[Rfam]
RNA sequence: CUUGUGUUAAAAACUCUACCUAAGACUCAGGGGGCUUUGCCUUAAUUUUCCUGCCGAGGUGGUAUCGAACGAUUCAUGAUACCUCUAUGUCUUGGUGGACAUGGAGUUUUUUUAUAUAAAA
Dot-bracket structure: ...........................((((((((...))).......))))).............................((((((((((....))))))))))...............
Numbered sequence: 001c002u003u004g005u006g007u008u009a010a011a012a013a014c015u016c017u018a019c020c021u022a023a024g025a026c027u028c029a030g031g032g033g034g035c036u037u038u039g040c041c042u043u044a045a046u047u048u049u050c051c052u053g054c055c056g057a058g059g060u061g062g063u064a065u066c067g068a069a070c071g072a073u074u075c076a077u078g079a080u081a082c083c084u085c086u087a088u089g090u091c092u093u094g095g096u097g098g099a100c101a102u103g104g105a106g107u108u109u110u111u112u113u114a115u116a117u118a119a120a121a
Stems, first nucleotide, its partner, number of pairs: 028053005033041003083106010
Background
The family of this 121-nucleotide RNA sequence from Lacticaseibacillus sharpeae is "Ribosomal protein L10 leader". Pairs were carried over by alignment from the consensus structure, which was predicted with CMfinder. Taxonomically the source falls in Lacticaseibacillus sharpeae (Bacteria, Bacillati, Bacillota, Lactobacillaceae). This family is a putative r-protein leader autoregulatory structure found in B. subtilis and other low-GC Gram-positive bacteria. It is located in the 5' untranslated regions of mRNAs encoding ribosomal proteins L10 and L12 (rplJ-rplL). A Rho-independent transcription terminator structure that is probably involved in regulation is included at the 3' end. By type it is a cis-regulatory leader.